[Rfam]
RNA sequence: UAGGGGCACCUCCAACCCUCUUUAGUUCAAAAUAUUGUACUAGUUUUCCAAAAUGAUAUAUCGUUUUGGAAAACUAGUACAAUAUUUUGAACUAAAGAGGGUUGGAGGUGCACCUA
Numbered sequence: 001u002a003g004g005g006g007c008a009c010c011u012c013c014a015a016c017c018c019u020c021u022u023u024a025g026u027u028c029a030a031a032a033u034a035u036u037g038u039a040c041u042a043g044u045u046u047u048c049c050a051a052a053a054u055g056a057u058a059u060a061u062c063g064u065u066u067u068g069g070a071a072a073a074c075u076a077g078u079a080c081a082a083u084a085u086u087u088u089g090a091a092c093u094a095a096a097g098a099g100g101g102u103u104g105g106a107g108g109u110g111c112a113c114c115u116a
Stems, first nucleotide, its partner, number of pairs: 002115003006111038
The family of this 116-nucleotide sequence from Panicum virgatum is "MIR5070 microRNA precursor family". The family has 2 seed sequences and 266 matches in Rfam 15.1. The match comes from Rfam's covariance-model search (103 bits). NCBI's taxonomy places the organism under Eukaryota, Viridiplantae, Streptophytina, Panicum, Panicum sect. Hiantes. The family is grouped with related families in Rfam's "MIR2863 microRNA precursor clan". Its family is annotated with RISC complex and miRNA-mediated post-transcriptional gene silencing in the Gene Ontology.